[Rfam]
RNA sequence: AGGUAAUGUCUCCUGUUCCUUUAUCAAUGGAGGCACUCGGCCGCACGGUGGUGUUCCAAGAUACGGAGCGCUUAGACGCCUGUCGUCAAGCGUGCGGUGUGAGGAAGGGUUGGAUGCCCU
Numbered sequence: 001a002g003g004u005a006a007u008g009u010c011u012c013c014u015g016u017u018c019c020u021u022u023a024u025c026a027a028u029g030g031a032g033g034c035a036c037u038c039g040g041c042c043g044c045a046c047g048g049u050g051g052u053g054u055u056c057c058a059a060g061a062u063a064c065g066g067a068g069c070g071c072u073u074a075g076a077c078g079c080c081u082g083u084c085g086u087c088a089a090g091c092g093u094g095c096g097g098u099g100u101g102a103g104g105a106a107g108g109g110u111u112g113g114a115u116g117c118c119c120u
Base pairs, nucleotide, nucleotide: 001020002019003018007035008034009033010032011031012030013029036103037102038101039100040098041097042096043095044094045093046092047091050072051071052070053069054068055067056066057065075087076086077085078084106120107119108118109117110116

A member of the RNA family "epsC RNA" from Domibacillus epiphyticus, 120 nucleotides long.
The base pairs follow the family's consensus structure, which is taken from published work.